Rfam assigns this 74-nucleotide RNA from Gallus gallus to the family "mir-205 microRNA precursor family". Rfam links the family to the GO terms miRNA-mediated post-transcriptional gene silencing and RISC complex. Rfam's curators put it in the seed alignment. On this family, see Lim et al., Science 2003: "Vertebrate microRNA genes". The organism belongs to Gallus, within Eukaryota.

[Rfam]
RNA sequence: UCCUGAUGCCCUUCAUUCCACCGGAAUCUGUCAGUGCAGAAACCAGAUUUCAGUGAAAUGAAGCCCAUCAGAGA
Numbered sequence: 001u002c003c004u005g006a007u008g009c010c011c012u013u014c015a016u017u018c019c020a021c022c023g024g025a026a027u028c029u030g031u032c033a034g035u036g037c038a039g040a041a042a043c044c045a046g047a048u049u050u051c052a053g054u055g056a057a058a059u060g061a062a063g064c065c066c067a068u069c070a071g072a073g074a
Stems, first nucleotide, its partner, number of pairs: 011063006019055003023051004028046003
Dot-bracket structure: ..........((((((..(((.((((.(((.............))).)))).)))..))))))...........